RNA sequence: CUCUUAUUUAGAGAGGUGGAGGGACUGGCCCUAUGAAACCCGGCAACCACGAUUUUUAUCGAAGGUGCUAAUUCCAGCAGUACAUAUUGUACUGAAAGAUGAGAG
Numbered sequence: 001c002u003c004u005u006a007u008u009u010a011g012a013g014a015g016g017u018g019g020a021g022g023g024a025c026u027g028g029c030c031c032u033a034u035g036a037a038a039c040c041c042g043g044c045a046a047c048c049a050c051g052a053u054u055u056u057u058a059u060c061g062a063a064g065g066u067g068c069u070a071a072u073u074c075c076a077g078c079a080g081u082a083c084a085u086a087u088u089g090u091a092c093u094g095a096a097a098g099a100u101g102a103g104a105g
Base pairs, nucleotide, nucleotide: 001105002104003103004102005101006100007099008098013041015040016039017038021031022030023029025077026076027075028074042069043068044067045066047065048064050061051060052059053058073097078094079093080092081091082090083089